[Rfam]
RNA sequence: GGACCGGGCAAUCGCCCGGUUCCCACCUCCGGUACCUGACACGGCCGGACCUA
Numbered sequence: 001g002g003a004c005c006g007g008g009c010a011a012u013c014g015c016c017c018g019g020u021u022c023c024c025a026c027c028u029c030c031g032g033u034a035c036c037u038g039a040c041a042c043g044g045c046c047g048g049a050c051c052u053a
Stems, first nucleotide, its partner, number of pairs: 001022009025052001028049006
Dot-bracket structure: (((((((((....)))))))))..(..((((((..........))))))..).
Record summary
Shown here is a 53-nucleotide RNA from Nocardioides sp. J54, a member of the family "L17-Actino-Proteobacteria ribosomal protein leader". For this family Rfam cites "Discovery of 20 novel ribosomal leader candidates in bacteria and archaea" (Eckert and Weinberg, BMC Microbiol, 2020). NCBI's taxonomy places the organism under Bacteria, Actinomycetes, Propionibacteriales, Nocardioidaceae, Nocardioides. Rfam's curators put it in the seed alignment.